[Rfam]
RNA sequence: GAAGAAGGGUCUACGGAGGAUGCCUGGGAGCCGCCAGGCGAGGAAGGACGCGGUCAGCUGCGAAAAGCCAUGGGGAGGAGCCAACAUCCGGUGAUCCAUGGGUGUCCGAAUGGGGUAACCCGCGCGGGGAAGACCCGCGCAUCCGCGCUGUGAAUACAUAGCAGGCGGAAGGAGACGCAGGGAAGUGAACCAUCUGAGUACCUGCAGGAAAAGACAUCAAACGAGAUUCCCCCAGUAGCGGCGAGCGAACGGGGAGGAGCCCAAACCUUUGGCGCGCAUAGCCUCGGGGCGUUGCGUCAGGGGGGUUGUAAGGGCAUGCCGGGGGACCACCGAGGGUCCCCGCGCAGAGAGAAAGGCACAGGUGAGCGGAAGGGUCUGGGAAGGCCCGCCGAAGACGGUGAAAGCCCGGUACGCGAAGCCUGGUGCGCUGUGUGGGCAUGCGCCUUGAGUACGGCGGGACACGAGGAAUCCAGCCGGAAGCAGGGGGGACCACCCUCCAAGGCUAAACACUGGCGGCUACCGAUAGCGCAUAGUACCGUGAGGGAAAGGUGAAAAGGACCCCGGGAGGGGAGUGAAAGAGAACCUGAAACCGUAGACUUG
Numbered sequence: 001g002a003a004g005a006a007g008g009g010u011c012u013a014c015g016g017a018g019g020a021u022g023c024c025u026g027g028g029a030g031c032c033g034c035c036a037g038g039c040g041a042g043g044a045a046g047g048a049c050g051c052g053g054u055c056a057g058c059u060g061c062g063a064a065a066a067g068c069c070a071u072g073g074g075g076a077g078g079a080g081c082c083a084a085c086a087u088c089c090g091g092u093g094a095u096c097c098a099u100g101g102g103u104g105u106c107c108g109a110a111u112g113g114g115g116u117a118a119c120c121c122g123c124g125c126g127g128g129g130a131a132g133a134c135c136c137g138c139g140c141a142u143c144c145g146c147g148c149u150g151u152g153a154a155u156a157c158a159u160a161g162c163a164g165g166c167g168g169a170a171g172g173a174g175a176c177g178c179a180g181g182g183a184a185g186u187g188a189a190c191c192a193u194c195u196g197a198g199u200a201c202c203u204g205c206a207g208g209a210a211a212a213g214a215c216a217u218c219a220a221a222c223g224a225g226a227u228u229c230c231c232c233c234a235g236u237a238g239c240g241g242c243g244a245g246c247g248a249a250c251g252g253g254g255a256g257g258a259g260c261c262c263a264a265a266c267c268u269u270u271g272g273c274g275c276g277c278a279u280a281g282c283c284u285c286g287g288g289g290c291g292u293u294g295c296g297u298c299a300g301g302g303g304g305g306u307u308g309u310a311a312g313g314g315c316a317u318g319c320c321g322g323g324g325g326a327c328c329a330c331c332g333a334g335g336g337u338c339c340c341c342g343c344g345c346a347g348a349g350a351g352a353a354a355g356g357c358a359c360a361g362g363u364g365a366g367c368g369g370a371a372g373g374g375u376c377u378g379g380g381a382a383g384g385c386c387c388g389c390c391g392a393a394g395a396c397g398g399u400g401a402a403a404g405c406c407c408g409g410u411a412c413g414c415g416a417a418g419c420c421u422g423g424u425g426c427g428c429u430g431u432g433u434g435g436g437c438a439u440g441c442g443c444c445u446u447g448a449g450u451a452c453g454g455c456g457g458g459a460c461a462c463g464a465g466g467a468a469u470c471c472a473g474c475c476g477g478a479a480g481c482a483g484g485g486g487g488g489a490c491c492a493c494c495c496u497c498c499a500a501g502g503c504u505a506a507a508c509a510c511u512g513g514c515g516g517c518u519a520c521c522g523a524u525a526g527c528g529c530a531u532a533g534u535a536c537c538g539u540g541a542g543g544g545a546a547a548g549g550u551g552a553a554a555a556g557g558a559c560c561c562c563g564g565g566a567g568g569g570g571a572g573u574g575a576a577a578g579a580g581a582a583c584c585u586g587a588a589a590c591c592g593u594a595g596a597c598u599u600g
Stems, first nucleotide, its partner, number of pairs: 007599010022584001023549002027521002029518009039171001046107003049062003068101007077089003112121003122140007142169005148164004176207001177205005187194002217224002227507001228255005238246002258504004266303011310446003315440005353429001356426004361421002366414003372387005390394001396408003452476004457471003483498005536543002559570004
A member of the RNA family "Bacterial large subunit ribosomal RNA" from Parasphaerochaeta coccoides, 600 nucleotides of a longer RNA. The sequence is in the family's curated seed alignment. Its family is annotated with structural constituent of ribosome and ribosome in the Gene Ontology. NCBI's taxonomy places the organism under Bacteria, Spirochaetota, Spirochaetales, Parasphaerochaeta, Parasphaerochaeta coccoides.